This 335-nucleotide sequence from Formosimonas limnophila belongs to the Rfam family "Bacterial RNase P class A". Rfam's curators write: Ribonuclease P (RNase P) is a ubiquitous endoribonuclease, found in archaea, bacteria and eukarya as well as chloroplasts and mitochondria. Pairs were carried over by alignment from the consensus structure, which is taken from published work. Gene Ontology terms of the family: ribonuclease P activity, tRNA processing and dimeric ribonuclease P complex. The family's RNA type in Rfam is ribozyme.
RNA sequence: CAUGUUUGCCAGACAAUCGCUGUCAUCUCACGAUGAGGGAGGAAAGUCCGGACUCCAUAGAGCACGAUAGCGGCUAACAGCCGUCCGCCGAAAUCUUUGAAAAGAGGCAUAAGGCGAGGAAUAGGGCCACAGAGACGAGCGUAUUUAGUUACGGUGAAACGCGGUAACCUCUAUCGGGAGCAACACCAAAUAGGCGCGUAUUGAGGCGGCUCGCUGAGCGCGCGGGUAGGUGGCUUGAGUGGCAGAGCAAUCUGUCGCCUAGAGGAAUGAUUGUCGCUUCAUGCGUUUCACGACGCAUGAAGUCACAGAAUCCGGCUUAUCGGCGAACUUGGGAU
Numbered sequence: 001c002a003u004g005u006u007u008g009c010c011a012g013a014c015a016a017u018c019g020c021u022g023u024c025a026u027c028u029c030a031c032g033a034u035g036a037g038g039g040a041g042g043a044a045a046g047u048c049c050g051g052a053c054u055c056c057a058u059a060g061a062g063c064a065c066g067a068u069a070g071c072g073g074c075u076a077a078c079a080g081c082c083g084u085c086c087g088c089c090g091a092a093a094u095c096u097u098u099g100a101a102a103a104g105a106g107g108c109a110u111a112a113g114g115c116g117a118g119g120a121a122u123a124g125g126g127c128c129a130c131a132g133a134g135a136c137g138a139g140c141g142u143a144u145u146u147a148g149u150u151a152c153g154g155u156g157a158a159a160c161g162c163g164g165u166a167a168c169c170u171c172u173a174u175c176g177g178g179a180g181c182a183a184c185a186c187c188a189a190a191u192a193g194g195c196g197c198g199u200a201u202u203g204a205g206g207c208g209g210c211u212c213g214c215u216g217a218g219c220g221c222g223c224g225g226g227u228a229g230g231u232g233g234c235u236u237g238a239g240u241g242g243c244a245g246a247g248c249a250a251u252c253u254g255u256c257g258c259c260u261a262g263a264g265g266a267a268u269g270a271u272u273g274u275c276g277c278u279u280c281a282u283g284c285g286u287u288u289c290a291c292g293a294c295g296c297a298u299g300a301a302g303u304c305a306c307a308g309a310a311u312c313c314g315g316c317u318u319a320u321c322g323g324c325g326a327a328c329u330u331g332g333g334a335u
Stems, first nucleotide, its partner, number of pairs: 001331002004328007011320001012275007020039002023036005044318003048315005053180004060212004065176005070084005085118001086116004119171002124169002126165003140153004184232004194223006205215003239258008